[Rfam]
RNA sequence: GCCAAGGGGUUUAUCCGCGACGACCCCGUGAGGCCUCGGCCCAAGGUUCGCGUCCACGAUCCCGACACGGGAACGGACGCUCAUG
Numbered sequence: 001g002c003c004a005a006g007g008g009g010u011u012u013a014u015c016c017g018c019g020a021c022g023a024c025c026c027c028g029u030g031a032g033g034c035c036u037c038g039g040c041c042c043a044a045g046g047u048u049c050g051c052g053u054c055c056a057c058g059a060u061c062c063c064g065a066c067a068c069g070g071g072a073a074c075g076g077a078c079g080c081u082c083a084u085g
Stems, first nucleotide, its partner, number of pairs: 006027005050080006
Dot-bracket structure: .....(((((............)))))......................((((((...................)))))).....
This 85-nucleotide sequence from Methylopila sp. Yamaguchi belongs to the Rfam family "chrB-a RNA". The organism belongs to Methylopila, within Bacteria. Pairs were carried over by alignment from the consensus structure, which is taken from published work.